[Rfam]
RNA: FMN riboswitch aptamer (RFN element)
RNA sequence: CAAAUCCUUCGGGGCAGGGUGCGGGAGGCAAACUCCCAAUUCCCGAUCGGUGGUGAUAACCCACGAACGCGCUCGCGCGUAUGAUCCGGUGAAAUUCCGGGGUCGACGGUAUAGUCCGGAUAGAAGAAGGUACCC
Numbered sequence: 001c002a003a004a005u006c007c008u009u010c011g012g013g014g015c016a017g018g019g020u021g022c023g024g025g026a027g028g029c030a031a032a033c034u035c036c037c038a039a040u041u042c043c044c045g046a047u048c049g050g051u052g053g054u055g056a057u058a059a060c061c062c063a064c065g066a067a068c069g070c071g072c073u074c075g076c077g078c079g080u081a082u083g084a085u086c087c088g089g090u091g092a093a094a095u096u097c098c099g100g101g102g103u104c105g106a107c108g109g110u111a112u113a114g115u116c117c118g119g120a121u122a123g124a125a126g127a128a129g130g131u132a133c134c135c
Stems, first nucleotide, its partner, number of pairs: 006130005017044003046115002048105002050064004059103002085101005107118003